A member of the RNA family "istR Hfq binding RNA" from Klebsiella pneumoniae, 131 nucleotides long.
[Rfam]
RNA sequence: AGAGAAAAACCGACCUUAAAUUGCGCGAACUGCAGCGAUCGCGUAUACUUUUGGCGUUGACGUAAUACAGUGUGCUUGCGGCUACCACCUGUAACCAUGCUGAUAAAAACCUCGCUCCGGCGGGGUUUUUU
Number, nucleotide and partner (000 for none) at each position: 001a000002g061003a000004g000005a058006a057007a000008a000009a000010c000011c056012g055013a000014c000015c000016u000017u000018a050019a049020a000021u000022u045023g044024c043025g042026c041027g040028a039029a000030c037031u000032g000033c000034a000035g000036c000037g030038a000039u028040c027041g026042c025043g024044u023045a022046u000047a000048c000049u019050u018051u000052u000053g000054g000055c012056g011057u006058u005059g000060a000061c002062g000063u000064a000065a000066u000067a000068c000069a000070g101071u000072g000073u099074g098075c000076u094077u000078g092079c091080g090081g089082c000083u000084a000085c000086c000087a000088c000089c081090u080091g079092u078093a000094a076095c000096c000097a000098u074099g073100c000101u070102g000103a000104u000105a130106a129107a128108a127109a126110c125111c124112u123113c122114g121115c120116u000117c000118c000119g000120g115121c114122g113123g112124g111125g110126u109127u108128u107129u106130u105131u000
The family's RNA type in Rfam is antitoxin RNA. Rfam's curators put it in the seed alignment. The family's consensus secondary structure was predicted with CMfinder. The organism belongs to Klebsiella pneumoniae subsp. pneumoniae, within Bacteria.